[Rfam]
RNA sequence: GUGUGUGUGAGGAGUAAGAACGAAAGACAAAAGCCUUUGAGGUCGAAACAUGGCCAGACUCUUAAGGGCUUUUUUUCU
Numbered sequence: 001g002u003g004u005g006u007g008u009g010a011g012g013a014g015u016a017a018g019a020a021c022g023a024a025a026g027a028c029a030a031a032a033g034c035c036u037u038u039g040a041g042g043u044c045g046a047a048a049c050a051u052g053g054c055c056a057g058a059c060u061c062u063u064a065a066g067g068g069c070u071u072u073u074u075u076u077c078u
Base pairs, nucleotide, nucleotide: 029073030072031071032070033069034068035067039063040062041061042059043058044057